[Rfam]
This 81-nucleotide RNA sequence from Bactrocera dorsalis belongs to the Rfam family "bantam microRNA precursor family".
RNA sequence: AUUUGAACACAAAACCGGUUUUCGAUUUGAUUUGGCUGUUUCUUCAACAAGUGAGAUCAUUUUGAAAGCUGAUUUUGUCAA
Numbered sequence: 001a002u003u004u005g006a007a008c009a010c011a012a013a014a015c016c017g018g019u020u021u022u023c024g025a026u027u028u029g030a031u032u033u034g035g036c037u038g039u040u041u042c043u044u045c046a047a048c049a050a051g052u053g054a055g056a057u058c059a060u061u062u063u064g065a066a067a068g069c070u071g072a073u074u075u076u077g078u079c080a081a
Base pairs, nucleotide, nucleotide: 009078010077011076012075013074014073016071017070018069019068020067021066022065023064024063025062028059029058030057031056032055033054
The source organism's lineage runs through Eukaryota, Opisthokonta, Neoptera, Muscomorpha and Bactrocera dorsalis complex. Gene Ontology terms of the family: RISC complex and miRNA-mediated post-transcriptional gene silencing.